[Rfam]
RNA: Small nucleolar SNORD12/SNORD106
RNA sequence: GCUGGUAUAAAUGAUGACUUGACUUUUUUCCCCGUCAGAUCGACAAUGUUGAUGUCUUUAAUUACUUGCCAGUUAGUUCUGAUACACCAGC
Numbered sequence: 001g002c003u004g005g006u007a008u009a010a011a012u013g014a015u016g017a018c019u020u021g022a023c024u025u026u027u028u029u030c031c032c033c034g035u036c037a038g039a040u041c042g043a044c045a046a047u048g049u050u051g052a053u054g055u056c057u058u059u060a061a062u063u064a065c066u067u068g069c070c071a072g073u074u075a076g077u078u079c080u081g082a083u084a085c086a087c088c089a090g091c
Stems, first nucleotide, its partner, number of pairs: 001091006008084002